Rfam assigns this 128-nucleotide RNA sequence from Salmo salar to the family "Small nucleolar RNA ACA64". The literature on the family includes a 2006 paper in RNA by Schattner et al., "A computational screen for mammalian pseudouridylation guide H/ACA RNAs". The family has 30 seed sequences and 9,537 matches in Rfam 15.1. Pairs were carried over by alignment from the consensus structure, which was predicted with WAR. It is annotated as an H/ACA-box small nucleolar RNA.
[Rfam]
RNA sequence: ACAGUCUGAAAAUUACCUCAGGUGUACCAGUUGCCUGGGGUGAGAUAACAGUGCCUACAGUAUUGUGGUACGUUAAGCUUAUUGCCUGCUCUGUAUAGCAGUGUGAUUAAACCCAUGUGCCCACACUA
Numbered sequence: 001a002c003a004g005u006c007u008g009a010a011a012a013u014u015a016c017c018u019c020a021g022g023u024g025u026a027c028c029a030g031u032u033g034c035c036u037g038g039g040g041u042g043a044g045a046u047a048a049c050a051g052u053g054c055c056u057a058c059a060g061u062a063u064u065g066u067g068g069u070a071c072g073u074u075a076a077g078c079u080u081a082u083u084g085c086c087u088g089c090u091c092u093g094u095a096u097a098g099c100a101g102u103g104u105g106a107u108u109a110a111a112c113c114c115a116u117g118u119g120c121c122c123a124c125a126c127u128a
Stems, first nucleotide, its partner, number of pairs: 006051003010046001013043004021035004067121001069119005079109001081107003087100003